[Rfam]
RNA: Small nucleolar RNA R44/J54/Z268 family
RNA sequence: AUUGCAAGUGAUGAUAAAACAGACAGGGACAUCAGAAUCCAUAGGGUUGUGAUGAUUUGUCGUUGGGAAUCUCUCUGAUGCACA
Numbered sequence: 001a002u003u004g005c006a007a008g009u010g011a012u013g014a015u016a017a018a019a020c021a022g023a024c025a026g027g028g029a030c031a032u033c034a035g036a037a038u039c040c041a042u043a044g045g046g047u048u049g050u051g052a053u054g055a056u057u058u059g060u061c062g063u064u065g066g067g068a069a070u071c072u073c074u075c076u077g078a079u080g081c082a083c084a
Stems, first nucleotide, its partner, number of pairs: 003082004